RNA sequence: GGCAGGAGCUUGCGUUCAGGCUCUCGAUACGUCUAUGGUAUGGCGUCAGACUUAGCCCACAGCAGGGUAAGGAAUCGUUACGGAUCUGCGCACAGAGCGGAUCCACAAUAACGCAAGCA
Numbered sequence: 001g002g003c004a005g006g007a008g009c010u011u012g013c014g015u016u017c018a019g020g021c022u023c024u025c026g027a028u029a030c031g032u033c034u035a036u037g038g039u040a041u042g043g044c045g046u047c048a049g050a051c052u053u054a055g056c057c058c059a060c061a062g063c064a065g066g067g068u069a070a071g072g073a074a075u076c077g078u079u080a081c082g083g084a085u086c087u088g089c090g091c092a093c094a095g096a097g098c099g100g101a102u103c104c105a106c107a108a109u110a111a112c113g114c115a116a117g118c119a
Stems, first nucleotide, its partner, number of pairs: 008118009025077004029046005051071004056066002082104003086100004
Shown here is a 119-nucleotide RNA sequence, a member of the family "DUF3268 RNA".
Pairs were carried over by alignment from the consensus structure, which is taken from published work.